The family of this 84-nucleotide RNA sequence from Candidatus Brocadia sinica is "c-di-GMP-I-GGC riboswitch aptamer". The literature on the family includes a 2012 paper in Biochemistry by Smith et al., "Structural and biochemical characterization of linear dinucleotide analogues bound to the c-di-GMP-I aptamer". The match comes from Rfam's covariance-model search (68 bits).
RNA sequence: UUUGAAAAAGGCAAACCAAUCGUGAGAUUGGGACGCAAAGCUAUGGGUCUUCAAUGAAGAAUGAAGAAUGCCAAGUUGCCAUGU
Numbered sequence: 001u002u003u004g005a006a007a008a009a010g011g012c013a014a015a016c017c018a019a020u021c022g023u024g025a026g027a028u029u030g031g032g033a034c035g036c037a038a039a040g041c042u043a044u045g046g047g048u049c050u051u052c053a054a055u056g057a058a059g060a061a062u063g064a065a066g067a068a069u070g071c072c073a074a075g076u077u078g079c080c081a082u083g084u
Stems, first nucleotide, its partner, number of pairs: 003081002011036002016031006034070001039077004044073003048067006